t44 RNA: a 129-nucleotide sequence from Photobacterium profundum. It scores 70 bits against the family's covariance model. Rfam describes the family as follows. This family consists of a number of bacterial RNA genes of between 135 and 170 bases in length. The t44 gene has been identified in several species of enteric bacteria but homologs have also been identified in Pseudomonas and Coxiella species. The t44 gene is found between the map and rpsB genes in all species in the full alignment apart from Shigella flexneri. The function of this RNA is unknown. A reference for the family is Tjaden et al. (2002), "Transcriptome analysis of Escherichia coli using high-density oligonucleotide probe arrays", Nucleic Acids Res. Taxonomically the source falls in Photobacterium profundum (Bacteria, Pseudomonadota, Vibrionales, Photobacterium).
RNA sequence: CAUACUUUUUAUUAAUCACUCACACAUAUCGACACAUGCUCCGGGGUGCCCGCCAUUUUUAAUAAGCCCAUUACGGACUUAGGUAAAAUGGAUAGAGGGUCGGUAGGAUGGGAUAUGUGGACGCCUAAC
Number, nucleotide and partner (000 for none) at each position: 001c000002a000003u000004a000005c000006u000007u000008u000009u000010u000011a000012u000013u000014a000015a000016u000017c000018a000019c000020u000021c000022a000023c119024a118025c117026a116027u115028a114029u113030c112031g000032a000033c000034a000035c110036a109037u108038g000039c106040u000041c103042c102043g101044g000045g000046g000047u000048g100049c099050c098051c097052g000053c000054c000055a000056u000057u000058u000059u000060u000061a000062a000063u000064a000065a000066g000067c000068c000069c000070a000071u000072u000073a000074c000075g000076g000077a000078c000079u000080u000081a000082g000083g000084u000085a000086a000087a000088a000089u000090g000091g000092a000093u000094a000095g000096a000097g051098g050099g049100u048101c043102g042103g041104u000105a000106g039107g000108a037109u036110g035111g000112g030113a029114u028115a027116u026117g025118u024119g023120g000121a000122c000123g000124c000125c000126u000127a000128a000129c000